Shown here is an 88-nucleotide RNA sequence from Litoribrevibacter albus, a member of the family "tRNA". NCBI's taxonomy places the organism under Bacteria, Pseudomonadota, Gammaproteobacteria, Oceanospirillales, Litoribrevibacter. Rfam classes the family as a transfer RNA. Pairs were carried over by alignment from the consensus structure, which is taken from published work.
[Rfam]
RNA sequence: GGAGGGGUGGCAGAGUGGUCGAAUGCACCGGUCUUGAAAACCGGCGCGGGUUAAUAGCCCGCCGAGAGUUCGAAUCUCUCCUCCUCCG
Number, nucleotide and partner (000 for none) at each position: 001g087002g086003a085004g084005g083006g082007g081008u000009g000010g026011c025012a024013g000014a000015g000016u000017g000018g000019u000020c000021g000022a000023a000024u012025g011026c010027a000028c044029c043030g042031g041032u040033c000034u000035u000036g000037a000038a000039a000040a032041c031042c030043g029044g028045c000046g000047c000048g000049g000050g000051u000052u000053a000054a000055u000056a000057g000058c000059c000060c000061g000062c000063c000064g080065a079066g078067a077068g076069u000070u000071c000072g000073a000074a000075u000076c068077u067078c066079u065080c064081c007082u006083c005084c004085u003086c002087c001088g000